[Rfam]
RNA sequence: GAACGUUCUCGGGGCGGGGUGAAACUCCCCACCGGCGGUAAUCGUGCGACAGCGCGUCAGCCCGCGAGCGCCUACUUCUUUUGGGAGUAGGGUCAGCAGACCCGGUGUGAUUCCGGGGCCGACGGUAUAGUCCGGAUGGUAGAGAACGGCU
Numbered sequence: 001g002a003a004c005g006u007u008c009u010c011g012g013g014g015c016g017g018g019g020u021g022a023a024a025c026u027c028c029c030c031a032c033c034g035g036c037g038g039u040a041a042u043c044g045u046g047c048g049a050c051a052g053c054g055c056g057u058c059a060g061c062c063c064g065c066g067a068g069c070g071c072c073u074a075c076u077u078c079u080u081u082u083g084g085g086a087g088u089a090g091g092g093u094c095a096g097c098a099g100a101c102c103c104g105g106u107g108u109g110a111u112u113c114c115g116g117g118g119c120c121g122a123c124g125g126u127a128u129a130g131u132c133c134g135g136a137u138g139g140u141a142g143a144g145a146a147c148g149g150c151u
Stems, first nucleotide, its partner, number of pairs: 004148007017029003031131002033121002035065004060119002068097002101117005123134003
Source information
A member of the RNA family "FMN riboswitch aptamer (RFN element)" from Pleomorphomonas diazotrophica, 151 nucleotides long. Pairs were carried over by alignment from the consensus structure, which is taken from published work. A reference for the family is Vitreschak et al. (2002), "Regulation of riboflavin biosynthesis and transport genes in bacteria by transcriptional and translational attenuation", Nucleic Acids Res. The source organism's lineage runs through Bacteria, Pseudomonadati, Pseudomonadota, Alphaproteobacteria and Pleomorphomonas.